[Rfam]
Shown here is a 77-nucleotide RNA sequence from Enterococcus dispar, a member of the family "SAM-III riboswitch aptamer (SMK box)".
NCBI's taxonomy places the organism under Bacteria, Bacillati, Lactobacillales, Enterococcaceae, Enterococcus dispar.
RNA sequence: AAACGUUGCAAGUUCCCGAGAGGAUUCGCACUGCGAAGAUGCCUUGUAACCGAAUAUUAUCAGGGGGAAUCAUCAUG
Numbered sequence: 001a002a003a004c005g006u007u008g009c010a011a012g013u014u015c016c017c018g019a020g021a022g023g024a025u026u027c028g029c030a031c032u033g034c035g036a037a038g039a040u041g042c043c044u045u046g047u048a049a050c051c052g053a054a055u056a057u058u059a060u061c062a063g064g065g066g067g068a069a070u071c072a073u074c075a076u077g
Stems, first nucleotide, its partner, number of pairs: 013069005020045004025037005050064002